[Rfam]
RNA sequence: GCAUGAGUGAUGAUGUCCAUUCUUUUGUCGGAUACCCCUUCACUCUCCACUGAGUGAGAUCCUGCGUCUGACAUGU
Numbered sequence: 001g002c003a004u005g006a007g008u009g010a011u012g013a014u015g016u017c018c019a020u021u022c023u024u025u026u027g028u029c030g031g032a033u034a035c036c037c038c039u040u041c042a043c044u045c046u047c048c049a050c051u052g053a054g055u056g057a058g059a060u061c062c063u064g065c066g067u068c069u070g071a072c073a074u075g076u
Base pairs, nucleotide, nucleotide: 001076002075003074004073005072

Small nucleolar RNA SNORD101: a 76-nucleotide RNA sequence from Stegastes partitus. Its Rfam clan is "SNORD101 clan". Rfam links the family to the GO terms nucleolus and RNA processing. The literature on the family includes a 2003 paper in Nucleic Acids Res by Vitali et al., "Identification of 13 novel human modification guide RNAs". Taxonomically the source falls in Stegastes (Eukaryota, Craniata, Euteleostomi, Euteleosteomorpha).